[Rfam]
RNA sequence: GUCUCAAUAGCUCAGUGGUUAGAGCACUGGCACGGUACGCCAGAGGCCCUGGGUUCGAGUCCCGGUUGAGACU
Numbered sequence: 001g002u003c004u005c006a007a008u009a010g011c012u013c014a015g016u017g018g019u020u021a022g023a024g025c026a027c028u029g030g031c032a033c034g035g036u037a038c039g040c041c042a043g044a045g046g047c048c049c050u051g052g053g054u055u056c057g058a059g060u061c062c063c064g065g066u067u068g069a070g071a072c073u
Stems, first nucleotide, its partner, number of pairs: 001072007010025004027043005049065005

This 73-nucleotide RNA sequence from Magallana gigas belongs to the Rfam family "tRNA". By type it is a transfer RNA. Pairs were carried over by alignment from the consensus structure, which is taken from published work.